[Rfam]
Nucleotides: 357
Stems, first nucleotide, its partner, number of pairs: 041058007062195005072188002075183003086173002090170003096112005113155007196211004202221002205219003323338004329354006
Number, partner (000 for none) and nucleotide at each position: 001000c002000a003000c004000c005000u006000u007000g008000c009000g010000c011000c012000c013000c014000c015000c016000a017000c018000c019000c020000c021000c022000u023000g024000c025000c026000c027000c028000u029000a030000u031000a032000u033000u034000g035000a036000c037000g038000c039000u040000u041058g042057u043056c044055g045054g046053g047052g048000g049000c050000a051000a052047c053046c054045u055044c056043g057042a058041c059000u060000a061000u062195g063194g064193c065192g066191a067000u068000a069000a070000a071000c072188g073187c074000a075183c076182c077181u078000g079000u080000a081000a082000u083000a084000a085000u086173c087172g088000g089000c090170u091169c092168g093000g094000a095000c096112c097111c098110g099109g100108g101000g102000g103000c104000g105000g106000u107000a108100c109099c110098c111097g112096g113155c114154g115153g116152c117151u118150c119149c120000a121000c122000c123000a124000a125000a126000a127000c128000c129000c130000c131000c132000g133000u134000u135000c136000a137000u138000u139000g140000c141000g142000g143000g144000c145000g146000u147000g148000u149119g150118g151117g152116g153115c154114c155113g156000a157000a158000a159000u160000a161000g162000g163000a164000u165000c166000g167000a168092c169091g170090a171000a172087c173086g174000a175000c176000c177000a178000a179000a180000g181077a182076g183075g184000c185000c186000a187073g188072c189000u190000u191066u192065c193064g194063c195062u196211c197210g198209g199208u200000g201000a202221g203220g204000u205219a206218c207217c208199a209198c210197c211196g212000u213000u214000a215000u216000c217207g218206g219205u220203c221202c222000g223000c224000a225000a226000g227000u228000a229000c230000a231000g232000u233000u234000g235000c236000c237000a238000a239000u240000g241000a242000c243000a244000a245000c246000c247000g248000u249000g250000c251000u252000c253000c254000g255000a256000u257000g258000g259000c260000u261000c262000u263000g264000g265000c266000u267000g268000c269000g270000u271000a272000a273000g274000c275000a276000g277000u278000u279000c280000g281000a282000g283000g284000u285000a286000u287000c288000g289000a290000a291000a292000c293000u294000u295000a296000a297000g298000c299000c300000c301000c302000u303000g304000c305000g306000c307000u308000u309000a310000g311000c312000c313000g314000c315000g316000u317000a318000g319000g320000g321000c322000g323338g324337g325336g326335u327000u328000c329354g330353c331352a332351g333350g334349u335326a336325c337324c338323u339000g340000g341000c342000a343000a344000c345000a346000g347000a348000a349334a350333c351332c352331u353330g354329c355000a356000c357000c
This 357-nucleotide RNA from Tabrizicola piscis belongs to the Rfam family "Alphaproteobacteria transfer-messenger RNA". The literature on the family includes a 1996 paper in RNA by Williams and Bartel, "Phylogenetic analysis of tmRNA secondary structure". NCBI's taxonomy places the organism under Bacteria, Pseudomonadati, Pseudomonadota, Paracoccaceae, Tabrizicola.